[Rfam]
RNA sequence: GACGAUACUGGGAAUGGGGUCUCCCGAAACCGCCGAAAGGCUGAUGACUCCUACCGCGUA
Numbered sequence: 001g002a003c004g005a006u007a008c009u010g011g012g013a014a015u016g017g018g019g020u021c022u023c024c025c026g027a028a029a030c031c032g033c034c035g036a037a038a039g040g041c042u043g044a045u046g047a048c049u050c051c052u053a054c055c056g057c058g059u060a
Stems, first nucleotide, its partner, number of pairs: 010025004016051006032041003
Dot-bracket structure: .........[[[[..((((((]]]]......(((....)))....)))))).........

Shown here is a 60-nucleotide RNA sequence from Rhodospirillum rubrum, a member of the family "Fluoride riboswitch aptamer (crcB RNA motif)". The family's consensus secondary structure is taken from published work. The organism belongs to Rhodospirillum rubrum, within Bacteria. Gene Ontology terms of the family: response to fluoride and positive regulation of gene expression. Rfam 15.1 lists 2,293 matches to the family in 1,982 species.